A member of the RNA family "Small nucleolar RNA Z159/U59" from Brassica oleracea, 87 nucleotides long. A search with the family's covariance model found it, with a score of 67 bits. For this family Rfam cites "The high diversity of snoRNAs in plants: identification and comparative study of 120 snoRNA genes from Oryza sativa" (Chen et al., Nucleic Acids Res, 2003).
RNA sequence: UACUCUAAUGAUGUUAAAACUAUUAACUUUCGUUCUCCUGAGAUUUCAUUGUGCUGAAAAAUAAUUGGAGACCUGAACUGAAGAGUU
Numbered sequence: 001u002a003c004u005c006u007a008a009u010g011a012u013g014u015u016a017a018a019a020c021u022a023u024u025a026a027c028u029u030u031c032g033u034u035c036u037c038c039u040g041a042g043a044u045u046u047c048a049u050u051g052u053g054c055u056g057a058a059a060a061a062u063a064a065u066u067g068g069a070g071a072c073c074u075g076a077a078c079u080g081a082a083g084a085g086u087u
Base pairs, nucleotide, nucleotide: 003085004084005083006082
The organism belongs to Brassica oleracea, within Eukaryota.